[Rfam]
RNA: Eukaryotic large subunit ribosomal RNA, nucleotides 1 to 584
RNA sequence: UCAUCUCCAAUCAAGCAAGAAGACCUGCUGAAUUGAAGCAUCUAACUAAGCAGAGGAAAAGAAAAUAACGAUGAUUCCCUUAGUAACGGCGAGUGAAGUGGGAAAAGCCCAAUCCGAAUUAACACUUAAUUGUGUUAAGUUGUGGAGUGUAGAAGUAUUGUUUAGUAACAGUAUACUAUGAGAAUUGGAUUGGAAAGUCAAGUCAUAGAAGGUGAAAACCCUGUAUUUGCAUAGUGUAUUGUACUUGUGAAGCAGUACUUCGUGGAGUCGAGUUGUUUGGGAUUGCAGCUCGAAGUUGGUGGUAAACUCCAUCAAAGGCUAAAUAUGUUCAAGAGACCGAUAGCGAACAAGUACCGUGAGGGAAAGAUGAAAAGCACUUUGAAAAAAGAGUGAAAUAGUACUUGAAAUCGUGGAGGGGUUAAGCGUAGGAGUGGUUGAAUGAUGCAUGGAUUGUUAUUGUUGCAUGUUUGUGAUGAUAAGAAUGUAUGCAAAGGAGUGGUUGUUUAAUAGUGGUAAAAGGAUUGUACUGCUACUGAACCUCCUCUUUCCUAAUAACUGCUUCUCCGUCCCGUCUUGAAACACGG
Dot-bracket structure: .......................((((((.....((....))......))))).).........((....))...((((......((.....)).....))))..((((...((((.((((((((......)))))))..).)))).....((.((((.((((.(((..(....((((((....(..(((......))).)..(...)..((.......))........))))))...)..))).....)))).)))).))........(((((((........))))))).....(((((........)))))..)))).................................((....))...............((((....))))...................................((.(((((((((..........(.(((............................................................................................))).).......))))))))).))..((((........))))
Numbered sequence: 001u002c003a004u005c006u007c008c009a010a011u012c013a014a015g016c017a018a019g020a021a022g023a024c025c026u027g028c029u030g031a032a033u034u035g036a037a038g039c040a041u042c043u044a045a046c047u048a049a050g051c052a053g054a055g056g057a058a059a060a061g062a063a064a065a066u067a068a069c070g071a072u073g074a075u076u077c078c079c080u081u082a083g084u085a086a087c088g089g090c091g092a093g094u095g096a097a098g099u100g101g102g103a104a105a106a107g108c109c110c111a112a113u114c115c116g117a118a119u120u121a122a123c124a125c126u127u128a129a130u131u132g133u134g135u136u137a138a139g140u141u142g143u144g145g146a147g148u149g150u151a152g153a154a155g156u157a158u159u160g161u162u163u164a165g166u167a168a169c170a171g172u173a174u175a176c177u178a179u180g181a182g183a184a185u186u187g188g189a190u191u192g193g194a195a196a197g198u199c200a201a202g203u204c205a206u207a208g209a210a211g212g213u214g215a216a217a218a219c220c221c222u223g224u225a226u227u228u229g230c231a232u233a234g235u236g237u238a239u240u241g242u243a244c245u246u247g248u249g250a251a252g253c254a255g256u257a258c259u260u261c262g263u264g265g266a267g268u269c270g271a272g273u274u275g276u277u278u279g280g281g282a283u284u285g286c287a288g289c290u291c292g293a294a295g296u297u298g299g300u301g302g303u304a305a306a307c308u309c310c311a312u313c314a315a316a317g318g319c320u321a322a323a324u325a326u327g328u329u330c331a332a333g334a335g336a337c338c339g340a341u342a343g344c345g346a347a348c349a350a351g352u353a354c355c356g357u358g359a360g361g362g363a364a365a366g367a368u369g370a371a372a373a374g375c376a377c378u379u380u381g382a383a384a385a386a387a388g389a390g391u392g393a394a395a396u397a398g399u400a401c402u403u404g405a406a407a408u409c410g411u412g413g414a415g416g417g418g419u420u421a422a423g424c425g426u427a428g429g430a431g432u433g434g435u436u437g438a439a440u441g442a443u444g445c446a447u448g449g450a451u452u453g454u455u456a457u458u459g460u461u462g463c464a465u466g467u468u469u470g471u472g473a474u475g476a477u478a479a480g481a482a483u484g485u486a487u488g489c490a491a492a493g494g495a496g497u498g499g500u501u502g503u504u505u506a507a508u509a510g511u512g513g514u515a516a517a518a519g520g521a522u523u524g525u526a527c528u529g530c531u532a533c534u535g536a537a538c539c540u541c542c543u544c545u546u547u548c549c550u551a552a553u554a555a556c557u558g559c560u561u562c563u564c565c566g567u568c569c570c571g572u573c574u575u576g577a578a579a580c581a582c583g584g
Stems, first nucleotide, its partner, number of pairs: 024055001025053005035042002065072002076103004086094002106320004113146004118141001119138007152261002155258004160253004165244003170239001175235006185201001188199003204208001211221002270291007297314005354361002377388004424566002427563009446547001448545003569584004